[Rfam]
RNA: skipping-rope RNA
RNA sequence: UAAGAAUGAGGAUAGAAUAGGCAGCUAUCGCCCCAUUUUGGGCUUAAAGAGAUCCAGAUUGCCACCUGGCUUCUUA
Numbered sequence: 001u002a003a004g005a006a007u008g009a010g011g012a013u014a015g016a017a018u019a020g021g022c023a024g025c026u027a028u029c030g031c032c033c034c035a036u037u038u039u040g041g042g043c044u045u046a047a048a049g050a051g052a053u054c055c056a057g058a059u060u061g062c063c064a065c066c067u068g069g070c071u072u073c074u075u076a
Base pairs, nucleotide, nucleotide: 001076002075003074004073005072006071008070011029012028013027014026015025020063021062022061023060031049032042033041034040035039054069055068056067057066
Dot-bracket structure: ((((((.(..(((((....[[[[.))))).(((((...))))......)....((((..]]]]..)))))))))))